[Rfam]
RNA sequence: CAUUGGUGGGAUGAUAUUUGUUUUCGGAAAAUAAUGAUGUCGACUAUAAUAAUCAGACUACAAUUAUCUGAUCAAUG
Numbered sequence: 001c002a003u004u005g006g007u008g009g010g011a012u013g014a015u016a017u018u019u020g021u022u023u024u025c026g027g028a029a030a031a032u033a034a035u036g037a038u039g040u041c042g043a044c045u046a047u048a049a050u051a052a053u054c055a056g057a058c059u060a061c062a063a064u065u066a067u068c069u070g071a072u073c074a075a076u077g
Stems, first nucleotide, its partner, number of pairs: 001077006
RNA: Small nucleolar RNA Z155
Organism: Tripterygium wilfordii